A member of the RNA family "RAGATH-18 RNA" from Clostridium liquoris, 70 nucleotides long. Rfam's curators write: Actinobacteria, Firmicutes, Fusobacteria, Thermotogae (1 example). Rfam classes the family as a small RNA. The source organism's lineage runs through Bacteria, Bacillota, Clostridia, Clostridiaceae and Clostridium. The base pairs follow the family's consensus structure, which is taken from published work. A search with the family's covariance model found it, with a score of 65 bits.
[Rfam]
RNA sequence: UCCUUGGAGAGUUACACCAAACUAAAGUAGAAUAAGCAAUUAUUCAAAAUAGAACUCUGUGAAUAGGAAA
Numbered sequence: 001u002c003c004u005u006g007g008a009g010a011g012u013u014a015c016a017c018c019a020a021a022c023u024a025a026a027g028u029a030g031a032a033u034a035a036g037c038a039a040u041u042a043u044u045c046a047a048a049a050u051a052g053a054a055c056u057c058u059g060u061g062a063a064u065a066g067g068a069a070a
Stems, first nucleotide, its partner, number of pairs: 001068004009057005022052003030045003